[Rfam]
RNA: L31-Firmicutes ribosomal protein leader
RNA sequence: CUAUAGUUACCUACAACUAUGGCGGAAGGAG
Numbered sequence: 001c002u003a004u005a006g007u008u009a010c011c012u013a014c015a016a017c018u019a020u021g022g023c024g025g026a027a028g029g030a031g
Stems, first nucleotide, its partner, number of pairs: 001022008